[Rfam]
RNA sequence: UUUAGAACUCAAGAUAUAGGUUGAACAUUGAACAAUGUCUGGGCUGCAGGACAGAUUUGGACUUCUUUAUUGUUGCUAUAAUUUGGACUUGAAAAAAGCCUUUUUAAAUCUUGGACUCCAUGAAAGUUAUAGGCCUAUGUCUUACCUUUCCAUC
Numbered sequence: 001u002u003u004a005g006a007a008c009u010c011a012a013g014a015u016a017u018a019g020g021u022u023g024a025a026c027a028u029u030g031a032a033c034a035a036u037g038u039c040u041g042g043g044c045u046g047c048a049g050g051a052c053a054g055a056u057u058u059g060g061a062c063u064u065c066u067u068u069a070u071u072g073u074u075g076c077u078a079u080a081a082u083u084u085g086g087a088c089u090u091g092a093a094a095a096a097a098g099c100c101u102u103u104u105u106a107a108a109u110c111u112u113g114g115a116c117u118c119c120a121u122g123a124a125a126g127u128u129a130u131a132g133g134c135c136u137a138u139g140u141c142u143u144a145c146c147u148u149u150c151c152a153u154c
Stems, first nucleotide, its partner, number of pairs: 003152001005150003009144001011143010021132003025128001027127003035121003042118002045115001048112004054105002059100002062098002068092001072088003
Rfam assigns this 154-nucleotide sequence from Populus alba to the family "MIR2912 microRNA precursor family". A search with the family's covariance model found it, with a score of 120 bits. Its family is annotated with RISC complex and miRNA-mediated post-transcriptional gene silencing in the Gene Ontology. The family's consensus secondary structure was predicted with RNAalifold.